[Rfam]
RNA sequence: GUCUUAGAGUCUCAAGAAGAGGUACAAGGAGAUGAGAAGUGAAUCACUGAAACAAGUGGUUCUGGUUUGUGGAUCAGUAUGGUUUACCCAAAACACGUGUUUGGUGCUUCACUUCUAAACUCCUCGUACUCUUCUUGGGAUUCUAUGAC
Numbered sequence: 001g002u003c004u005u006a007g008a009g010u011c012u013c014a015a016g017a018a019g020a021g022g023u024a025c026a027a028g029g030a031g032a033u034g035a036g037a038a039g040u041g042a043a044u045c046a047c048u049g050a051a052a053c054a055a056g057u058g059g060u061u062c063u064g065g066u067u068u069g070u071g072g073a074u075c076a077g078u079a080u081g082g083u084u085u086a087c088c089c090a091a092a093a094c095a096c097g098u099g100u101u102u103g104g105u106g107c108u109u110c111a112c113u114u115c116u117a118a119a120c121u122c123c124u125c126g127u128a129c130u131c132u133u134c135u136u137g138g139g140a141u142u143c144u145a146u147g148a149c
Stems, first nucleotide, its partner, number of pairs: 001149003005145017023128003027124005033118001035116009045106004050102005056096003060093002063090003069087008
The family of this 149-nucleotide RNA from Arabidopsis lyrata is "MIR831 microRNA precursor family". Gene Ontology terms of the family: RISC complex and miRNA-mediated post-transcriptional gene silencing.